Record summary:
Shown here is a 103-nucleotide RNA sequence from Eggerthellaceae bacterium zg-893, a member of the family "azaaromatic riboswitch aptamer (yjdF RNA)". Lineage of the source: Bacteria > Actinomycetota > Coriobacteriia > Eggerthellales > Eggerthellaceae. The base pairs follow the family's consensus structure, which is taken from published work.
[Rfam]
RNA sequence: CCUAUCAGAGAUAAAAACACAGUCCCCGUCGGGUAGUCGCGGGCGUGCGGGAAACCGCAUCAGUAACCUGCCUCCUUGGUUGUCCCUUCUCUGCAUGGCCCAU
Numbered sequence: 001c002c003u004a005u006c007a008g009a010g011a012u013a014a015a016a017a018c019a020c021a022g023u024c025c026c027c028g029u030c031g032g033g034u035a036g037u038c039g040c041g042g043g044c045g046u047g048c049g050g051g052a053a054a055c056c057g058c059a060u061c062a063g064u065a066a067c068c069u070g071c072c073u074c075c076u077u078g079g080u081u082g083u084c085c086c087u088u089c090u091c092u093g094c095a096u097g098g099c100c101c102a103u
Stems, first nucleotide, its partner, number of pairs: 006093006022044002025042002027039002045060006070080003